[Rfam]
Nucleotides: 088
Stems, first nucleotide, its partner, number of pairs: 001088004
Number, partner (000 for none) and nucleotide at each position: 001088u002087g003086g004085a005000u006000a007000u008000g009000a010000u011000g012000a013000u014000c015000g016000c017000a018000a019000u020000u021000g022000g023000u024000c025000c026000g027000u028000g029000u030000u031000u032000c033000u034000g035000a036000a037000a038000a039000a040000g041000c042000c043000u044000u045000c046000g047000g048000g049000c050000u051000a052000u053000c054000u055000g056000g057000a058000g059000a060000a061000a062000c063000a064000c065000c066000a067000g068000c069000g070000a071000g072000a073000u074000u075000u076000g077000c078000c079000u080000a081000c082000u083000g084000a085004u086003c087002u088001a
Rfam assigns this 88-nucleotide sequence from Ceratodon purpureus to the family "Small nucleolar RNA SNORD18". The family's consensus secondary structure was predicted with PFOLD. The family has 16 seed sequences and 2,622 matches in Rfam 15.1. By type it is a C/D-box small nucleolar RNA. The family is grouped with related families in Rfam's "SNORD18 clan". A search with the family's covariance model found it, with a score of 45 bits. Lineage of the source: Eukaryota > Bryophyta > Dicranidae > Ditrichaceae > Ceratodon. The literature on the family includes a 1993 paper in Nucleic Acids Res by Prislei et al., "Two different snoRNAs are encoded in introns of amphibian and human L1 ribosomal protein genes".